Shown here is a 124-nucleotide RNA sequence from Lacticaseibacillus manihotivorans, a member of the family "FMN riboswitch aptamer (RFN element)". The source organism's lineage runs through Bacteria, Bacillati, Bacilli, Lactobacillales and Lacticaseibacillus manihotivorans.
RNA sequence: GUUCGUCUUCAGGGCAGGGUGCAAUUCCCGACCGGCGGUGACAGUCCGCGACCCGCAUGUUGUGUGCGGCUGACAAGGUGUGAAUCCUUGACCGAUAGUACAGUCUAGAGUAAAGAAGAUAGCG
Numbered sequence: 001g002u003u004c005g006u007c008u009u010c011a012g013g014g015c016a017g018g019g020u021g022c023a024a025u026u027c028c029c030g031a032c033c034g035g036c037g038g039u040g041a042c043a044g045u046c047c048g049c050g051a052c053c054c055g056c057a058u059g060u061u062g063u064g065u066g067c068g069g070c071u072g073a074c075a076a077g078g079u080g081u082g083a084a085u086c087c088u089u090g091a092c093c094g095a096u097a098g099u100a101c102a103g104u105c106u107a108g109a110g111u112a113a114a115g116a117a118g119a120u121a122g123c124g
Base pairs, nucleotide, nucleotide: 003122005120006119007118008117009116010115017029018028019027031104032103033094034093035049036048037047038046044092045091053069054068074090075089076088077087078086096107097106098105
Dot-bracket structure: ..(.((((((......(((.......))).[[((((((.....[[))))...((.............))....(((((.......)))))]])).(((....]]))).......)))))).)..

Record summary:
Rfam 15.1 lists 6,230 matches to the family in 5,120 species. The RFN element is a highly conserved domain that is found frequently in the 5'-untranslated regions of prokaryotic mRNAs that encode for flavin mononucleotide (FMN) biosynthesis and transport proteins. On this family, see Vitreschak et al., Nucleic Acids Res 2002: "Regulation of riboflavin biosynthesis and transport genes in bacteria by transcriptional and translational attenuation".